[Rfam]
RNA sequence: AUACUUAUCUGGCAGGGGAGAUACCAUGCUCAUGAAGGUGGUUUUCCCAGGGUGAUGCUUAUCCAUUGCACUCCAGAUGAGCUGACACAUGCGAUUUCCCCAAAUAUGGGAAACUUGAUUGCAUAAUUCGUGGUGGUGGGGGACUGUGUUCACACUUUCCCCUG
Numbered sequence: 001a002u003a004c005u006u007a008u009c010u011g012g013c014a015g016g017g018g019a020g021a022u023a024c025c026a027u028g029c030u031c032a033u034g035a036a037g038g039u040g041g042u043u044u045u046c047c048c049a050g051g052g053u054g055a056u057g058c059u060u061a062u063c064c065a066u067u068g069c070a071c072u073c074c075a076g077a078u079g080a081g082c083u084g085a086c087a088c089a090u091g092c093g094a095u096u097u098c099c100c101c102a103a104a105u106a107u108g109g110g111a112a113a114c115u116u117g118a119u120u121g122c123a124u125a126a127u128u129c130g131u132g133g134u135g136g137u138g139g140g141g142g143a144c145u146g147u148g149u150u151c152a153c154a155c156u157u158u159c160c161c162c163u164g
Stems, first nucleotide, its partner, number of pairs: 012122004016048006023042005049090001051088001054086001057082002060079004092117003095113003099109002138163006146155003